[Rfam]
RNA sequence: UUGAAGCUCCAUCUAUAAAUGGAUAAGAUUUUUUUCUUAGUGUAUACGAGUUUUUAAAAAGAAAGGAGCAAUAUCAAUCCUCUUGAUAAAAAAAGAGAUUGGUUAUUGCUCCUUU
Numbered sequence: 001u002u003g004a005a006g007c008u009c010c011a012u013c014u015a016u017a018a019a020u021g022g023a024u025a026a027g028a029u030u031u032u033u034u035u036c037u038u039a040g041u042g043u044a045u046a047c048g049a050g051u052u053u054u055u056a057a058a059a060a061g062a063a064a065g066g067a068g069c070a071a072u073a074u075c076a077a078u079c080c081u082c083u084u085g086a087u088a089a090a091a092a093a094a095g096a097g098a099u100u101g102g103u104u105a106u107u108g109c110u111c112c113u114u115u
Stems, first nucleotide, its partner, number of pairs: 008023005062115012077100001080097005
RNA: Plastid-psbA-1 3UTR RNA